[Rfam]
RNA: Eukaryotic small subunit ribosomal RNA, nucleotides 1181 to 1723
Organism: Lachnellula suecica
RNA sequence: AAAGUUGUUGCAGUUAAAAAGCUCGUAGUUGAACCUUGGGCCUGGUUGGCCGGUCCGCCUCACCGCGUGCACUGGUCCGACCGGGUCUUUCCUUCUAGGGAACCUCAUGCCUUUCAUUAGGUGUGCUGGGGAACUAGGACUUUUACUUUGAAAAAAUUAGAGUGUUCAAAGCAGGCCUAUGCUCGAAUACAUUAGCAUGGAAUAAUAGAAUAGGACGUGUGGUUCUAUUUUGUUGGUUUCUAGGACCGCCGUAAUGAUUAAUAGGGAUAGUCGGGGGCAUCAGUAUUCAAUUGUCAGAGGUGAAAUUCUUGGAUUUAUUGAAGACUAACUACUGCGAAAGCAUUUGCCAAGGAUGUUUUCAUUAAUCAGUGAACGAAAGUUAGGGGAUCGAAGACGAUCAGAUACCGUCGUAGUCUUAACUAUAAACUAUGCCGACUAGGGAUCGGGCGAUGUUAUCUUUUUGACUCGCUCGGCACCUUACGAGAAAUCAAAGUCUUUGGGUUCUGGGGGGAGUAUGGUCGCAAGGCUGAAACUUAAAGAAAU
Numbered sequence: 001a002a003a004g005u006u007g008u009u010g011c012a013g014u015u016a017a018a019a020a021g022c023u024c025g026u027a028g029u030u031g032a033a034c035c036u037u038g039g040g041c042c043u044g045g046u047u048g049g050c051c052g053g054u055c056c057g058c059c060u061c062a063c064c065g066c067g068u069g070c071a072c073u074g075g076u077c078c079g080a081c082c083g084g085g086u087c088u089u090u091c092c093u094u095c096u097a098g099g100g101a102a103c104c105u106c107a108u109g110c111c112u113u114u115c116a117u118u119a120g121g122u123g124u125g126c127u128g129g130g131g132a133a134c135u136a137g138g139a140c141u142u143u144u145a146c147u148u149u150g151a152a153a154a155a156a157u158u159a160g161a162g163u164g165u166u167c168a169a170a171g172c173a174g175g176c177c178u179a180u181g182c183u184c185g186a187a188u189a190c191a192u193u194a195g196c197a198u199g200g201a202a203u204a205a206u207a208g209a210a211u212a213g214g215a216c217g218u219g220u221g222g223u224u225c226u227a228u229u230u231u232g233u234u235g236g237u238u239u240c241u242a243g244g245a246c247c248g249c250c251g252u253a254a255u256g257a258u259u260a261a262u263a264g265g266g267a268u269a270g271u272c273g274g275g276g277g278c279a280u281c282a283g284u285a286u287u288c289a290a291u292u293g294u295c296a297g298a299g300g301u302g303a304a305a306u307u308c309u310u311g312g313a314u315u316u317a318u319u320g321a322a323g324a325c326u327a328a329c330u331a332c333u334g335c336g337a338a339a340g341c342a343u344u345u346g347c348c349a350a351g352g353a354u355g356u357u358u359u360c361a362u363u364a365a366u367c368a369g370u371g372a373a374c375g376a377a378a379g380u381u382a383g384g385g386g387a388u389c390g391a392a393g394a395c396g397a398u399c400a401g402a403u404a405c406c407g408u409c410g411u412a413g414u415c416u417u418a419a420c421u422a423u424a425a426a427c428u429a430u431g432c433c434g435a436c437u438a439g440g441g442a443u444c445g446g447g448c449g450a451u452g453u454u455a456u457c458u459u460u461u462u463g464a465c466u467c468g469c470u471c472g473g474c475a476c477c478u479u480a481c482g483a484g485a486a487a488u489c490a491a492a493g494u495c496u497u498u499g500g501g502u503u504c505u506g507g508g509g510g511g512a513g514u515a516u517g518g519u520c521g522c523a524a525g526g527c528u529g530a531a532a533c534u535u536a537a538a539g540a541a542a543u
Stems, first nucleotide, its partner, number of pairs: 011506003019503001021374001023372002028366003264360004268355002271352002276348004282326002286322006293315001297308003334341002379420006389413001393409004431502003434495003438478003443473008452465003482489002508535003517528004